[Rfam]
Shown here is a 121-nucleotide sequence from Gossypium trilobum, a member of the family "Small nucleolar RNA snoR111".

RNA sequence: GGAAGUGAGGAGACAUUUUAUUAUUGUGUCUCUUCAUUGAGGUAUAGUGAAAUCGAAGGCUGAGAUAUUGUUCCAGUCAUCAGUUUUCUCAAUUGAUAAAUUGGUUGUUGCUUGUACACAU
Dot-bracket structure: .....((((((((((...........)))))))))).....................(..((((..((((......(.((((.((.....)).)))).)..)))).....))))..)....
Notes:
Gene Ontology terms of the family: nucleolus and RNA processing. It is annotated as an H/ACA-box small nucleolar RNA. Pairs were carried over by alignment from the consensus structure, which was predicted with WAR. Rfam 15.1 lists 533 matches to the family in 223 species.